[Rfam]
RNA sequence: AGAUAACUCAGAGUCUCCCUACGGGGGAUAUGAGUAACGGUCGUUUGGCACGGCCAGUAGCCUACCUGUUCAAUCAAACCUCUGGGUCGUUCCGCCCGAGGGAACAGGUGGGUUGCAAACCUUAAUAUCCCAACGCUUGGGAAUCCUCGCCCUUUAGCGCGGGGA
Dot-bracket structure: ...(..((((..((((((....))).))).))))..).(((((.......)))))..((((((.(((((((............((((......))))....))))))).))))))............((((.(...).)))).(((((((.(....).)))))))
Numbered sequence: 001a002g003a004u005a006a007c008u009c010a011g012a013g014u015c016u017c018c019c020u021a022c023g024g025g026g027g028a029u030a031u032g033a034g035u036a037a038c039g040g041u042c043g044u045u046u047g048g049c050a051c052g053g054c055c056a057g058u059a060g061c062c063u064a065c066c067u068g069u070u071c072a073a074u075c076a077a078a079c080c081u082c083u084g085g086g087u088c089g090u091u092c093c094g095c096c097c098g099a100g101g102g103a104a105c106a107g108g109u110g111g112g113u114u115g116c117a118a119a120c121c122u123u124a125a126u127a128u129c130c131c132a133a134c135g136c137u138u139g140g141g142a143a144u145c146c147u148c149g150c151c152c153u154u155u156a157g158c159g160c161g162g163g164g165a
Stems, first nucleotide, its partner, number of pairs: 004037001007034004013029003016025003039055005058115006065108007084097004128142004133137001144165007152157001

This 165-nucleotide RNA from Halobellus salinus belongs to the Rfam family "Sense overlapping transcript RNA 0042 (sot)". Rfam 15.1 lists 196 matches to the family in 82 species. From the family's description: It is associated with IS1341-type transposase (tnpB) genes, at the 3'-end in H. salinarum NRC-1. The tetraloop structural motif may be functional. Rfam classes the family as a small RNA.